[Rfam]
RNA sequence: GAAAUAUAAGAAACCGUCUCUUAACUUUUAACUAAAAAAACUAAGAACCGGUUUUUAAAUAUUUAAAAACCGGUUCUUACAUUUUUUAGUUAAAAGGUAAGAGACGAUUUCUUAUAUUUC
Numbered sequence: 001g002a003a004a005u006a007u008a009a010g011a012a013a014c015c016g017u018c019u020c021u022u023a024a025c026u027u028u029u030a031a032c033u034a035a036a037a038a039a040a041c042u043a044a045g046a047a048c049c050g051g052u053u054u055u056u057a058a059a060u061a062u063u064u065a066a067a068a069a070c071c072g073g074u075u076c077u078u079a080c081a082u083u084u085u086u087u088a089g090u091u092a093a094a095a096g097g098u099a100a101g102a103g104a105c106g107a108u109u110u111c112u113u114a115u116a117u118u119u120c
Base pairs, nucleotide, nucleotide: 001120002119003118004117005116006115007114008113009112010111011110012109013108015106016105017104018103019102020101021100022099023098025096026095027094028093029092030091031090032089033088034087035086036085037084038083039082042079043078044077045076046075047074
A member of the RNA family "MIR9563 microRNA precursor family" from Brassica napus, 120 nucleotides long.
NCBI's taxonomy places the organism under Eukaryota, Tracheophyta, Euphyllophyta, Mesangiospermae, Brassica.
The family has 2 seed sequences and 5,832 matches in Rfam 15.1.
The family's consensus secondary structure was predicted with RNAalifold.